[Rfam]
RNA: Actino-pnp RNA
RNA sequence: CUCGGUCCUCGGUAGUGGCCCUCGGGAUGGCGAGCCCACCCCGCAGGCCUCGAUCGAAGACCGGC
Numbered sequence: 001c002u003c004g005g006u007c008c009u010c011g012g013u014a015g016u017g018g019c020c021c022u023c024g025g026g027a028u029g030g031c032g033a034g035c036c037c038a039c040c041c042c043g044c045a046g047g048c049c050u051c052g053a054u055c056g057a058a059g060a061c062c063g064g065c
Stems, first nucleotide, its partner, number of pairs: 002064006009057005017049004023043004028038002